[Rfam]
RNA sequence: CUCUUAUCAAGAGCGGCGGAGGGAAUAGGCCCUGUGAUGCCCGGCAACCAUCAAGCUAGAUUUCUAGCAUGAAAGGUGCUAAAUCCUACAGGUCAAUUAUGAUCUGGAAGAUAAGGG
Numbered sequence: 001c002u003c004u005u006a007u008c009a010a011g012a013g014c015g016g017c018g019g020a021g022g023g024a025a026u027a028g029g030c031c032c033u034g035u036g037a038u039g040c041c042c043g044g045c046a047a048c049c050a051u052c053a054a055g056c057u058a059g060a061u062u063u064c065u066a067g068c069a070u071g072a073a074a075g076g077u078g079c080u081a082a083a084u085c086c087u088a089c090a091g092g093u094c095a096a097u098u099a100u101g102a103u104c105u106g107g108a109a110g111a112u113a114a115g116g117g
Stems, first nucleotide, its partner, number of pairs: 001117008013042001015041003021032003026088004043080004048076002051072003084109001089106006
A member of the RNA family "SAM riboswitch aptamer (S box leader)" from Virgibacillus necropolis, 117 nucleotides long. A search with the family's covariance model found it, with a score of 85 bits. Pairs were carried over by alignment from the consensus structure, which is taken from published work. From the family's description: The SAM riboswitch is found upstream of a number of genes which code for proteins involved in methionine or cysteine biosynthesis in Gram-positive bacteria. NCBI's taxonomy places the organism under Bacteria, Bacillati, Bacilli, Bacillaceae, Virgibacillus.